[Rfam]
RNA sequence: GUACUCUUUUAAGGCUGGUGCAGUGCUUUUAGAGGCUAACACAGAAGAGGGACAUAAUCUCCAUAAAAGCCCAGAGAAGAGAUAAUAAAACACCUCUUGUCUGAAGUCAUAAUU
Numbered sequence: 001g002u003a004c005u006c007u008u009u010u011a012a013g014g015c016u017g018g019u020g021c022a023g024u025g026c027u028u029u030u031a032g033a034g035g036c037u038a039a040c041a042c043a044g045a046a047g048a049g050g051g052a053c054a055u056a057a058u059c060u061c062c063a064u065a066a067a068a069g070c071c072c073a074g075a076g077a078a079g080a081g082a083u084a085a086u087a088a089a090a091c092a093c094c095u096c097u098u099g100u101c102u103g104a105a106g107u108c109a110u111a112a113u114u
Stems, first nucleotide, its partner, number of pairs: 002051001004049007014040001016038002019035001021032001059106002062103002074098004079093001081091001083090001

Small nucleolar RNA SNORA26: a 114-nucleotide sequence from Erinaceus europaeus. The family has 76 seed sequences and 1,943 matches in Rfam 15.1. It is annotated as an H/ACA-box small nucleolar RNA. On this family, see Huttenhofer et al., EMBO J 2001: "RNomics: an experimental approach that identifies 201 candidates for novel, small, non-messenger RNAs in mouse". Rfam links the family to the GO terms RNA processing and nucleolus. Rfam's curators write: The snoRNA HBI-6 belong to the H/ACA family of snoRNAs, guiding the pseudouridylation of position U4522 if the 28S rRNA. HBI-6 is the human orthologue of mouse MBI-6 snoRNA.